Record summary: serC leader: a 53-nucleotide sequence from Zymomonas mobilis. The base pairs follow the family's consensus structure. Rfam classes the family as a cis-regulatory leader. This family is a putative regulatory RNA structure that is found upstream of the serC-serA operon in some alpha-proteobacteria. The final stem of the structure overlaps the ribosome binding site of the serC reading frame.
[Rfam]
RNA sequence: GAACGGGCCACGCUGUCCCAACGCAGCGCGUGCUCUCUGUGAGGAGAGUUUUA
Numbered sequence: 001g002a003a004c005g006g007g008c009c010a011c012g013c014u015g016u017c018c019c020a021a022c023g024c025a026g027c028g029c030g031u032g033c034u035c036u037c038u039g040u041g042a043g044g045a046g047a048g049u050u051u052u053a
Base pairs, nucleotide, nucleotide: 011028012027013026014025015024016023033048034047035046036045037044038043
On this family, see Corbino et al., Genome Biol 2005: "Evidence for a second class of S-adenosylmethionine riboswitches and other regulatory RNA motifs in alpha-proteobacteria". A search with the family's covariance model found it, with a score of 38 bits. The source organism's lineage runs through Bacteria, Pseudomonadati, Alphaproteobacteria, Sphingomonadales and Zymomonas mobilis subsp. mobilis.